[Rfam]
RNA sequence: GGCGCAGUAGCCAAGCGGUAAGGCAAUGGUCUGCAACACCAGUACGCACCGGUUCAAAUCCGGUCUGCGCCU
Numbered sequence: 001g002g003c004g005c006a007g008u009a010g011c012c013a014a015g016c017g018g019u020a021a022g023g024c025a026a027u028g029g030u031c032u033g034c035a036a037c038a039c040c041a042g043u044a045c046g047c048a049c050c051g052g053u054u055c056a057a058a059u060c061c062g063g064u065c066u067g068c069g070c071c072u
Stems, first nucleotide, its partner, number of pairs: 001071007010024003027041004048064005

This 72-nucleotide RNA from Blautia sp. OF03-15BH belongs to the Rfam family "tRNA". About the family: Transfer RNA (tRNA) molecules are approximately 80 nucleotides in length. It is annotated as a transfer RNA.